MIR5565 microRNA precursor family: a 109-nucleotide RNA sequence from Sorghum bicolor. It scores 95 bits against the family's covariance model.

RNA sequence: GCACACAUAUCCACCCCUAUCCACAUGGUUUGUGAGGGAUUGAAGUGGAACUUAAACUAAAUUCCACCUCAAUCCCUCCCAAACCACGUGGAUUGGGGUGGAUUUGUGU
Numbered sequence: 001g002c003a004c005a006c007a008u009a010u011c012c013a014c015c016c017c018u019a020u021c022c023a024c025a026u027g028g029u030u031u032g033u034g035a036g037g038g039a040u041u042g043a044a045g046u047g048g049a050a051c052u053u054a055a056a057c058u059a060a061a062u063u064c065c066a067c068c069u070c071a072a073u074c075c076c077u078c079c080c081a082a083a084c085c086a087c088g089u090g091g092a093u094u095g096g097g098g099u100g101g102a103u104u105u106g107u108g109u
Base pairs, nucleotide, nucleotide: 004108005107006106007105009103010102011101012100013099014098016096017095019093020092021091022090023089024088026086027085028084029083030082031081032080035077036076037075038074039073040072041071042070043069045067046066047065

Record summary:
The base pairs follow the family's consensus structure, which was predicted with RNAalifold. Rfam links the family to the GO terms RISC complex and miRNA-mediated post-transcriptional gene silencing.